Notes:
Rfam assigns this 130-nucleotide RNA from [Pantoea] beijingensis to the family "Salmonella enterica Typhi npcRNA 44". The family's RNA type in Rfam is non-coding RNA gene. Rfam 15.1 lists 474 matches to the family in 137 species. The family's consensus secondary structure was predicted with CMfinder. It scores 69 bits against the family's covariance model. A reference for the family is Chinni et al. (2010), "Experimental identification and characterization of 97 novel npcRNA candidates in Salmonella enterica serovar Typhi", Nucleic Acids Res. Lineage of the source: Bacteria > Pseudomonadati > Gammaproteobacteria > Enterobacterales > Erwinia.
[Rfam]
RNA sequence: CUUUAACAAUCCGGAACAAGCUGAAAAUUGAAACGACACGUCGCGUCAUUCUUCCGUAAUAAAGAAUGAAGGCGGUGUGUUCGAGUCUCUCAAAUUAUCACGACACGUAUGCGUUGCAAAACGCCUGUGG
Numbered sequence: 001c002u003u004u005a006a007c008a009a010u011c012c013g014g015a016a017c018a019a020g021c022u023g024a025a026a027a028u029u030g031a032a033a034c035g036a037c038a039c040g041u042c043g044c045g046u047c048a049u050u051c052u053u054c055c056g057u058a059a060u061a062a063a064g065a066a067u068g069a070a071g072g073c074g075g076u077g078u079g080u081u082c083g084a085g086u087c088u089c090u091c092a093a094a095u096u097a098u099c100a101c102g103a104c105a106c107g108u109a110u111g112c113g114u115u116g117c118a119a120a121a122c123g124c125c126u127g128u129g130g
Stems, first nucleotide, its partner, number of pairs: 020101001023099002026096004034083003038080004106129003111124003